[Rfam]
Background: The family of this 111-nucleotide sequence from Bacillus sp. PK3_68 is "SAM riboswitch aptamer (S box leader)".
RNA sequence: AUCUUAUCAAGAGCAGGUGGAGGGACAAGCCCGAUGAAGCCCGGCAACCGACCCGUAUGUAUACAUGCAGGCACGGUGCUAAUUCUUGCAGCGCAAGCUGACAGAUAAGAG
Numbered sequence: 001a002u003c004u005u006a007u008c009a010a011g012a013g014c015a016g017g018u019g020g021a022g023g024g025a026c027a028a029g030c031c032c033g034a035u036g037a038a039g040c041c042c043g044g045c046a047a048c049c050g051a052c053c054c055g056u057a058u059g060u061a062u063a064c065a066u067g068c069a070g071g072c073a074c075g076g077u078g079c080u081a082a083u084u085c086u087u088g089c090a091g092c093g094c095a096a097g098c099u100g101a102c103a104g105a106u107a108a109g110a111g
Stems, first nucleotide, its partner, number of pairs: 002110007013042001016041003022032003026088004043080004048076002050072001052070001084103001089100004
Background: The base pairs follow the family's consensus structure, which is taken from published work.